[Rfam]
RNA sequence: AAUAAGCGUUCAACGUUCUCUGGCACAGCUCGGAACGGACGCAGUCCUGCUUACCAAACUUAAUGAUGCCGACCAUCUCGUCUUCUUCGAAGCGGGAUAGCGCAUCGCUGAGCCCCGAUACUACGCCACGUGGUAAAUCGCACUGGGUAAUAUCACCGUUAACAAUCACCGUCACAUUUUCACCGAGACGGGUC
Numbered sequence: 001a002a003u004a005a006g007c008g009u010u011c012a013a014c015g016u017u018c019u020c021u022g023g024c025a026c027a028g029c030u031c032g033g034a035a036c037g038g039a040c041g042c043a044g045u046c047c048u049g050c051u052u053a054c055c056a057a058a059c060u061u062a063a064u065g066a067u068g069c070c071g072a073c074c075a076u077c078u079c080g081u082c083u084u085c086u087u088c089g090a091a092g093c094g095g096g097a098u099a100g101c102g103c104a105u106c107g108c109u110g111a112g113c114c115c116c117g118a119u120a121c122u123a124c125g126c127c128a129c130g131u132g133g134u135a136a137a138u139c140g141c142a143c144u145g146g147g148u149a150a151u152a153u154c155a156c157c158g159u160u161a162a163c164a165a166u167c168a169c170c171g172u173c174a175c176a177u178u179u180u181c182a183c184c185g186a187g188a189c190g191g192g193u194c
Base pairs, nucleotide, nucleotide: 003053004052005051006050007049008048014041015040016039017038018037063076064075065074067072083112084111085110088107093102094101114192115191116190117189119188122185125134126133127132137166138165140163144158145157146156171183172182174180